This 109-nucleotide sequence belongs to the Rfam family "Bacteroidales small SRP". It is annotated as a non-coding RNA gene. Clan: SRP clan.

[Rfam]
RNA sequence: AUGCCUUGGGUAAGUCCUAUACAGUCAGCUCCCUUUUAACUCCGCCAGGGCAGGAAUGCAGCAACGGUACAUUGGUCGUAGCGGCGUGAUAUAGAUCGCUUACCCAUUU
Numbered sequence: 001a002u003g004c005c006u007u008g009g010g011u012a013a014g015u016c017c018u019a020u021a022c023a024g025u026c027a028g029c030u031c032c033c034u035u036u037u038a039a040c041u042c043c044g045c046c047a048g049g050g051c052a053g054g055a056a057u058g059c060a061g062c063a064a065c066g067g068u069a070c071a072u073u074g075g076u077c078g079u080a081g082c083g084g085c086g087u088g089a090u091a092u093a094g095a096u097c098g099c100u101u102a103c104c105c106a107u108u109u
Stems, first nucleotide, its partner, number of pairs: 008105008017094005022088002024085002